[Rfam]
RNA sequence: UUGCCUAUGGGAUGAAGCAGUCCCUUACAUCUGAUUAACCAUCCUCUUCACUUUGUCUGCUAAAACCUUCUGUUUUUAGCUGAUCAUUAACGGAUGGGACAUUU
Numbered sequence: 001u002u003g004c005c006u007a008u009g010g011g012a013u014g015a016a017g018c019a020g021u022c023c024c025u026u027a028c029a030u031c032u033g034a035u036u037a038a039c040c041a042u043c044c045u046c047u048u049c050a051c052u053u054u055g056u057c058u059g060c061u062a063a064a065a066c067c068u069u070c071u072g073u074u075u076u077u078a079g080c081u082g083a084u085c086a087u088u089a090a091c092g093g094a095u096g097g098g099a100c101a102u103u104u
Base pairs, nucleotide, nucleotide: 039097040096041095042094043093055084056083057082059080060079061078062077
RNA: Small nucleolar RNA snoR99